[Rfam]
A member of the RNA family "L31-Actinobacteria ribosomal protein leader", 51 nucleotides long. By type it is a cis-regulatory leader. The literature on the family includes a 2020 paper in BMC Microbiol by Eckert and Weinberg, "Discovery of 20 novel ribosomal leader candidates in bacteria and archaea".
RNA sequence: UUGGUUCCGGUUCACGCCCCAUCCCAGGUCAUGGAGGGCGACCCGGCGGCC
Numbered sequence: 001u002u003g004g005u006u007c008c009g010g011u012u013c014a015c016g017c018c019c020c021a022u023c024c025c026a027g028g029u030c031a032u033g034g035a036g037g038g039c040g041a042c043c044c045g046g047c048g049g050c051c
Stems, first nucleotide, its partner, number of pairs: 003051003007046004015040005022035002